Notes: Shown here is a 128-nucleotide sequence from Chinchilla lanigera, a member of the family "Small nucleolar RNA SNORA25". It is annotated as an H/ACA-box small nucleolar RNA. The family has 30 seed sequences and 1,129 matches in Rfam 15.1. NCBI's taxonomy places the organism under Eukaryota, Amniota, Mammalia, Rodentia, Chinchilla. Rfam describes the family as follows. ACA25 is a member of the H/ACA class of snoRNA that guide the sites of modification of uridines to pseudouridines. It scores 86 bits against the family's covariance model.
RNA sequence: AGGUAAUUUUAAAGAGGGAUUGUUUGGCUGUGAAGCACAAUUUCUAAAUGCUAUGACCAAAGAUUGCAUUUCUUCACAGGACUCCAUAAACAUUCAAUGGUGCUAUGUUUUCCUUAGGAAAUAAAAGA
Numbered sequence: 001a002g003g004u005a006a007u008u009u010u011a012a013a014g015a016g017g018g019a020u021u022g023u024u025u026g027g028c029u030g031u032g033a034a035g036c037a038c039a040a041u042u043u044c045u046a047a048a049u050g051c052u053a054u055g056a057c058c059a060a061a062g063a064u065u066g067c068a069u070u071u072c073u074u075c076a077c078a079g080g081a082c083u084c085c086a087u088a089a090a091c092a093u094u095c096a097a098u099g100g101u102g103c104u105a106u107g108u109u110u111u112c113c114u115u116a117g118g119a120a121a122u123a124a125a126a127g128a
Base pairs, nucleotide, nucleotide: 002058003057004056006054007053015045016044017043018042019041020040021039026036071121073119074118075117078114079113080112081111086106087105088104091102092101093100094099